RNA: RNase E 5' UTR element
Organism: Duffyella gerundensis
RNA sequence: CUUUUCGCUCGCAAUUAAGAGCGAAGAUAAUAGCGAAAUAAUAAUUUAGCCGGAUUGAACAUACACGCAGCAAUGGCGUAAGACGUAAUGUUAAAUCAGGCACUUAGCGGGCUGCGGGUUGCAGCCUGGACGAUUAGACGGGAUAUGCUUUUUCUGGUGCAGUUCAGUAGCCUUUCCCUCAGAAGCGCUGUUUUUUUAACUUAAAAAGCAGGCUGCCGAUUUUGCGCCCCUGGAGCUGGCGACAACCGUGAGGUUGACGGCCUUGCAAUGAGACACGGGGCCACCGGUUUACUCUCGUCCAGCGUUACCAUGCCCGUAGCUUUGUCACUCA
Number, nucleotide and partner (000 for none) at each position: 001c000002u000003u038004u037005u036006c035007g034008c033009u000010c000011g000012c000013a000014a028015u027016u026017a000018a000019g000020a000021g000022c000023g000024a000025a000026g016027a015028u014029a000030a000031u000032a000033g008034c007035g006036a005037a004038a003039u000040a000041a000042u000043a000044a000045u000046u000047u000048a000049g101050c100051c099052g000053g097054a096055u000056u000057g000058a092059a091060c090061a089062u000063a000064c000065a086066c085067g084068c000069a000070g077071c076072a000073a000074u000075g000076g071077c070078g000079u000080a000081a000082g000083a000084c067085g066086u065087a000088a000089u061090g060091u059092u058093a000094a000095a000096u054097c053098a000099g051100g050101c049102a000103c000104u000105u000106a000107g000108c000109g322110g321111g320112c319113u318114g317115c316116g315117g314118g313119u312120u000121g000122c000123a000124g000125c000126c000127u301128g300129g299130a298131c297132g296133a295134u000135u000136a000137g000138a000139c000140g178141g177142g176143a175144u000145a000146u000147g000148c170149u169150u000151u167152u166153u000154c000155u000156g000157g000158u000159g000160c000161a000162g000163u000164u000165c000166a152167g151168u000169a149170g148171c000172c000173u000174u000175u143176c142177c141178c140179u000180c000181a000182g000183a000184a214185g213186c212187g000188c211189u210190g209191u208192u000193u206194u205195u204196u203197u000198a000199a000200c000201u000202u000203a196204a195205a194206a193207a000208g191209c190210a189211g188212g186213c185214u184215g288216c287217c286218g285219a000220u000221u000222u000223u000224g000225c000226g281227c280228c279229c278230c277231u000232g000233g000234a000235g000236c000237u000238g000239g000240c259241g258242a000243c256244a255245a254246c253247c252248g000249u000250g000251a000252g247253g246254u245255u244256g243257a000258c241259g240260g000261c000262c000263u000264u000265g000266c000267a000268a000269u000270g000271a000272g000273a000274c000275a000276c000277g230278g229279g228280g227281c226282c000283a000284c000285c218286g217287g216288u215289u000290u000291a000292c000293u000294c000295u133296c132297g131298u130299c129300c128301a127302g000303c000304g000305u000306u000307a000308c000309c000310a000311u000312g119313c118314c117315c116316g115317u114318a113319g112320c111321u110322u109323u000324g000325u000326c000327a000328c000329u000330c000331a000